About this RNA: Shown here is a 33-nucleotide sequence, a member of the family "DUF805b RNA". The family's RNA type in Rfam is cis-regulatory element. Its Rfam clan is "DUF805 clan". The base pairs follow the family's consensus structure, which is taken from published work.
RNA sequence: AAAGCGUUAACCGAAAAGCUUAUAGAGUAGGGA
Numbered sequence: 001a002a003a004g005c006g007u008u009a010a011c012c013g014a015a016a017a018g019c020u021u022a023u024a025g026a027g028u029a030g031g032g033a
Base pairs, nucleotide, nucleotide: 002021003020004019005018011031012030
Dot-bracket structure: .((((.....[[.....))))........]]..